RNA: let-7 microRNA precursor family
Organism: Perca fluviatilis
RNA sequence: GCAAGGUGAGGUAGUAGGUUGUAUAGUUUGUGGGAUGGAGAAAAUCCUACUCAGCUGAUAACUAUACAGUCUAUUACCUUCCUUGA
Numbered sequence: 001g002c003a004a005g006g007u008g009a010g011g012u013a014g015u016a017g018g019u020u021g022u023a024u025a026g027u028u029u030g031u032g033g034g035a036u037g038g039a040g041a042a043a044a045u046c047c048u049a050c051u052c053a054g055c056u057g058a059u060a061a062c063u064a065u066a067c068a069g070u071c072u073a074u075u076a077c078c079u080u081c082c083u084u085g086a
Base pairs, nucleotide, nucleotide: 002085003084004083005082006081008080009079010078011077012076013075014074015073016072017071018070019069020068021067022066023065024064025063026062027061032048033047034046035045050057